[Rfam]
RNA sequence: CGGCGGGACACCCCUCCCCAACGAGGGGCGCACAUCUGCGAGGAUGAGAUGA
Numbered sequence: 001c002g003g004c005g006g007g008a009c010a011c012c013c014c015u016c017c018c019c020a021a022c023g024a025g026g027g028g029c030g031c032a033c034a035u036c037u038g039c040g041a042g043g044a045u046g047a048g049a050u051g052a
Base pairs, nucleotide, nucleotide: 011028012027013026014025015024016023033046034045035044036043037042
Rfam assigns this 52-nucleotide sequence from Hasllibacter halocynthiae to the family "serC leader". Its family is annotated with regulation of gene expression in the Gene Ontology. Taxonomically the source falls in Hasllibacter (Bacteria, Pseudomonadota, Alphaproteobacteria, Rhodobacterales). On this family, see Corbino et al., Genome Biol 2005: "Evidence for a second class of S-adenosylmethionine riboswitches and other regulatory RNA motifs in alpha-proteobacteria". It scores 66 bits against the family's covariance model. From the family's description: This family is a putative regulatory RNA structure that is found upstream of the serC-serA operon in some alpha-proteobacteria. The final stem of the structure overlaps the ribosome binding site of the serC reading frame. It is annotated as a cis-regulatory leader.